Actino-pnp RNA: a 75-nucleotide RNA sequence.
Rfam's curators put it in the seed alignment.
The family's RNA type in Rfam is cis-regulatory element.
RNA sequence: GUCGGUCCUCGGUAGUGGCCCUCGAAGGGAUUCGCGCCCAGCGCGAGAACCCGGGGGCCUCGAUCGAAGACCGCC
Numbered sequence: 001g002u003c004g005g006u007c008c009u010c011g012g013u014a015g016u017g018g019c020c021c022u023c024g025a026a027g028g029g030a031u032u033c034g035c036g037c038c039c040a041g042c043g044c045g046a047g048a049a050c051c052c053g054g055g056g057g058c059c060u061c062g063a064u065c066g067a068a069g070a071c072c073g074c075c
Stems, first nucleotide, its partner, number of pairs: 001075001003073005009067005017059008027050001032048001033045004